[Rfam]
RNA: PyrR binding site
RNA sequence: AAUACCUUUUAAAGAUUGUCCAGAGAGGCAAGGAAGGGUAUGACAUGCAUGAAAGGAUCAUUUUUAGAAUGAUACCUUACCUUGUCACACCCUCCAAGCCUCGCUAAUGAUGAUAGCGAGGCUUAUUUAU
Numbered sequence: 001a002a003u004a005c006c007u008u009u010u011a012a013a014g015a016u017u018g019u020c021c022a023g024a025g026a027g028g029c030a031a032g033g034a035a036g037g038g039u040a041u042g043a044c045a046u047g048c049a050u051g052a053a054a055g056g057a058u059c060a061u062u063u064u065u066a067g068a069a070u071g072a073u074a075c076c077u078u079a080c081c082u083u084g085u086c087a088c089a090c091c092c093u094c095c096a097a098g099c100c101u102c103g104c105u106a107a108u109g110a111u112g113a114u115a116g117c118g119a120g121g122c123u124u125a126u127u128u129a130u
Base pairs, nucleotide, nucleotide: 005037006036007035008034009033016031017030018029019028020027052078053077055075057073058072059071060070061069062068096124097123098122099121100120101119102118103117104116105115106114